[Rfam]
RNA: Group II catalytic intron D1-D4-2
Nucleotides: 121
Stems, first nucleotide, its partner, number of pairs: 001019005020044006027037004049120001051095005056089001057083002060080003064076004100117006
Number, partner (000 for none) and nucleotide at each position: 001019g002018a003017a004016g005015g006000a007000g008000u009000u010000g011000u012000g013000g014000c015005c016004c017003u018002u019001c020044g021043g022042a023041g024040c025039c026000g027037c028036c029035c030034u031000g032000c033000g034030g035029g036028g037027g038000a039025g040024g041023u042022u043021c044020c045000a046000a047000a048000c049120c050000g051095c052094c053093u054092c055091a056089u057083g058082c059000u060080g061079c062078g063000u064076u065075a066074g067073u068000u069000a070000a071000c072000g073067a074066c075065u076064g077000u078062c079061g080060u081000g082058g083057u084000g085000a086000g087000c088000g089056a090000u091055u092054g093053a094052g095051g096000a097000a098000a099000a100117g101116g102115c103114g104113u105112u106000g107000u108000a109000a110000g111000a112105g113104g114103c115102g116101u117100c118000a119000g120049g121000u